RNA sequence: ACUUUUCAUGUUCCCUCAAAGGCUUCCAGUAUUCGGUCAUAUAAUUACUUGAAUGCUGGAAGGUUUUGUAGGAACUUGAUAGCU
Numbered sequence: 001a002c003u004u005u006u007c008a009u010g011u012u013c014c015c016u017c018a019a020a021g022g023c024u025u026c027c028a029g030u031a032u033u034c035g036g037u038c039a040u041a042u043a044a045u046u047a048c049u050u051g052a053a054u055g056c057u058g059g060a061a062g063g064u065u066u067u068g069u070a071g072g073a074a075c076u077u078g079a080u081a082g083c084u
Stems, first nucleotide, its partner, number of pairs: 006079003010075005017068005023062001025060010